[Rfam]
RNA sequence: CCAGGGGCUUGCGCCCCUGGCUACAACAUGCCGCCCCGAUGGGGCU
Numbered sequence: 001c002c003a004g005g006g007g008c009u010u011g012c013g014c015c016c017c018u019g020g021c022u023a024c025a026a027c028a029u030g031c032c033g034c035c036c037c038g039a040u041g042g043g044g045c046u
Stems, first nucleotide, its partner, number of pairs: 001020008033045005
Shown here is a 46-nucleotide RNA sequence from Lacipirellula parvula, a member of the family "Acido-Lenti-1 RNA". Taxonomically the source falls in Lacipirellula (Bacteria, Planctomycetota, Planctomycetia, Lacipirellulaceae).